The family of this 48-nucleotide RNA from Streptomyces avermitilis is "L31-Actinobacteria ribosomal protein leader". Lineage of the source: Bacteria > Bacillati > Actinomycetota > Actinomycetes > Streptomyces avermitilis. Clan: Ribosomal Protein L31 Leader clan.
[Rfam]
RNA sequence: UCGGCUCCGGUUCACGCCCCCCGCAUCCCGCGGCGGCGACCCGGCGCC
Numbered sequence: 001u002c003g004g005c006u007c008c009g010g011u012u013c014a015c016g017c018c019c020c021c022c023g024c025a026u027c028c029c030g031c032g033g034c035g036g037c038g039a040c041c042c043g044g045c046g047c048c
Base pairs, nucleotide, nucleotide: 003048004047005046007044008043009042010041015038016037017036018035021033022032023031